[Rfam]
RNA: Vault RNA
RNA sequence: GGGUCGGCUUUAGCUCUAGCGGUUCCUUCGUGCAACUUGAAUAAAUCUUGACUGACCAAGAGUUAUUCCCCAGUCCCGCUCAGGGGUUCGAGGCCCGCGGGCGCUUUCUGACCCUUUU
Numbered sequence: 001g002g003g004u005c006g007g008c009u010u011u012a013g014c015u016c017u018a019g020c021g022g023u024u025c026c027u028u029c030g031u032g033c034a035a036c037u038u039g040a041a042u043a044a045a046u047c048u049u050g051a052c053u054g055a056c057c058a059a060g061a062g063u064u065a066u067u068c069c070c071c072a073g074u075c076c077c078g079c080u081c082a083g084g085g086g087u088u089c090g091a092g093g094c095c096c097g098c099g100g101g102c103g104c105u106u107u108c109u110g111a112c113c114c115u116u117u118u
Stems, first nucleotide, its partner, number of pairs: 002113006013102004019098004027092004